[Rfam]
RNA: mir-137 microRNA precursor family
RNA sequence: GGGGGCCACGCGUAUUCCCGGGUAAUUAGCACAUAUCUAAAGUUGUUAUUGCUUGAGAAUACACGUAGCUGAC
Numbered sequence: 001g002g003g004g005g006c007c008a009c010g011c012g013u014a015u016u017c018c019c020g021g022g023u024a025a026u027u028a029g030c031a032c033a034u035a036u037c038u039a040a041a042g043u044u045g046u047u048a049u050u051g052c053u054u055g056a057g058a059a060u061a062c063a064c065g066u067a068g069c070u071g072a073c
Stems, first nucleotide, its partner, number of pairs: 001073001004070002008066003012062006019055005025050001027048005032042001